[Rfam]
RNA: U7 small nuclear RNA
Organism: Xenopus tropicalis
RNA sequence: AAGUUUUACAGCUCUUUUACUAUUUGUCCAGUAGGGUCUUACUGUGUAGGAGCUCCCCU
Numbered sequence: 001a002a003g004u005u006u007u008a009c010a011g012c013u014c015u016u017u018u019a020c021u022a023u024u025u026g027u028c029c030a031g032u033a034g035g036g037u038c039u040u041a042c043u044g045u046g047u048a049g050g051a052g053c054u055c056c057c058c059u
Stems, first nucleotide, its partner, number of pairs: 034056003037051005